[Rfam]
RNA sequence: AUCGUUCAUCUCUCUAGACAUCAGUCAGUUAGCAAUUAGCCGUGAAGGAUGAUUAGGGAGACGGAAGUAGGGGCAACUCCCGAAGGAACGCGCC
Dot-bracket structure: ..(((((.(((((((((...................................)))))))))..[.....(((......)))....)))))]...
Numbered sequence: 001a002u003c004g005u006u007c008a009u010c011u012c013u014c015u016a017g018a019c020a021u022c023a024g025u026c027a028g029u030u031a032g033c034a035a036u037u038a039g040c041c042g043u044g045a046a047g048g049a050u051g052a053u054u055a056g057g058g059a060g061a062c063g064g065a066a067g068u069a070g071g072g073g074c075a076a077c078u079c080c081c082g083a084a085g086g087a088a089c090g091c092g093c094c
Stems, first nucleotide, its partner, number of pairs: 003090005009061009064091001070081003
The record is a 94-nucleotide RNA from Coleofasciculus chthonoplastes, which matches "Glutamine riboswitch aptamer (glnA leader)" in Rfam. The sequence is in the family's curated seed alignment. For this family Rfam cites "Bacterial aptamers that selectively bind glutamine" (Ames and Breaker, RNA Biol, 2011). The organism belongs to Coleofasciculus chthonoplastes, within Bacteria.